[Rfam]
The family of this 253-nucleotide sequence from Microbulbifer rhizosphaerae is "Group II catalytic intron D1-D4-6".
Rfam's curators write: Group II introns are found in rRNA, tRNA and mRNA of organelles in fungi, plants and protists, and also in mRNA in bacteria.
The pairing is the family consensus, mapped onto this sequence.

RNA sequence: CAGUCCCACCAUGACCAAAGCCUAGCCAGCAGGUCAGUAGUGAAGCCCGGGUGCGAUCUUGGUAACAAGGUGUGCGGAGCAAGGGUGGAGCGAGAGUGUAGGCCAUUUAUUGAGCCCCGAAAUAUUGUAGAGUGGCGGUCAUUUGGAUAACCAUUGAUAGAUGGGAAAGCUAACGGUUUGCCUGUGUGCCGGAAAGCAGCAGUCUCAGUAACGCCUUGGCAAGUUGCUGCGACACCGCCGGGGUCUGAGAACA
Numbered sequence: 001c002a003g004u005c006c007c008a009c010c011a012u013g014a015c016c017a018a019a020g021c022c023u024a025g026c027c028a029g030c031a032g033g034u035c036a037g038u039a040g041u042g043a044a045g046c047c048c049g050g051g052u053g054c055g056a057u058c059u060u061g062g063u064a065a066c067a068a069g070g071u072g073u074g075c076g077g078a079g080c081a082a083g084g085g086u087g088g089a090g091c092g093a094g095a096g097u098g099u100a101g102g103c104c105a106u107u108u109a110u111u112g113a114g115c116c117c118c119g120a121a122a123u124a125u126u127g128u129a130g131a132g133u134g135g136c137g138g139u140c141a142u143u144u145g146g147a148u149a150a151c152c153a154u155u156g157a158u159a160g161a162u163g164g165g166a167a168a169g170c171u172a173a174c175g176g177u178u179u180g181c182c183u184g185u186g187u188g189c190c191g192g193a194a195a196g197c198a199g200c201a202g203u204c205u206c207a208g209u210a211a212c213g214c215c216u217u218g219g220c221a222a223g224u225u226g227c228u229g230c231g232a233c234a235c236c237g238c239c240g241g242g243g244u245c246u247g248a249g250a251a252c253a
Base pairs, nucleotide, nucleotide: 012036013035014034015033016032020030021029023222025220026219038093040091041090044086046084047083049080051075052074053073054072056071057070058069059068060067061066111247112245114244115243116242117241118240119239135238136237137236138235139234169197170196171195174191175190176189177188202233203232204231206229207228208227209226210225211224212223